[Rfam]
RNA sequence: UGGCUAUAAAAUAACUUAUUCUGUAGCCACUUUAAGUUACGAUAAUUACUAUGUUAAUUUACGAGAUUAUAGUAACUCCUUCCUAAGUGAUUUACUAUAACGUUAUGGACUUAUGGUAUAUCCCCAUGUGUUAUAGGAACUCAACUAUCGUAAAUAUGUAUUGACAUUAUCGUAAAUUAGUAUAUAAAAUUAUCGUAAAUGGAGGUGGCUACAGAAUAACUUAUUUUAUAGCUG
Numbered sequence: 001u002g003g004c005u006a007u008a009a010a011a012u013a014a015c016u017u018a019u020u021c022u023g024u025a026g027c028c029a030c031u032u033u034a035a036g037u038u039a040c041g042a043u044a045a046u047u048a049c050u051a052u053g054u055u056a057a058u059u060u061a062c063g064a065g066a067u068u069a070u071a072g073u074a075a076c077u078c079c080u081u082c083c084u085a086a087g088u089g090a091u092u093u094a095c096u097a098u099a100a101c102g103u104u105a106u107g108g109a110c111u112u113a114u115g116g117u118a119u120a121u122c123c124c125c126a127u128g129u130g131u132u133a134u135a136g137g138a139a140c141u142c143a144a145c146u147a148u149c150g151u152a153a154a155u156a157u158g159u160a161u162u163g164a165c166a167u168u169a170u171c172g173u174a175a176a177u178u179a180g181u182a183u184a185u186a187a188a189a190u191u192a193u194c195g196u197a198a199a200u201g202g203a204g205g206u207g208g209c210u211a212c213a214g215a216a217u218a219a220c221u222u223a224u225u226u227u228a229u230a231g232c233u234g
Base pairs, nucleotide, nucleotide: 001234002233003232004231005230006229007228008227009226010225011224012223013222014221016219017218018217019216020215021214022213023212024211025210026209027208028207029206030205031204032203033202037198038197039196040195041194042193043192044191045190046189047188050184051183052182053181054180055179056178057177058176059175060174061173062172065171066170067169069167070166074161080153081152083150087148088147089146091144092143093138095136096135097134098133099132100131101130102129103128107123108122
RNA: MIR6217 microRNA precursor family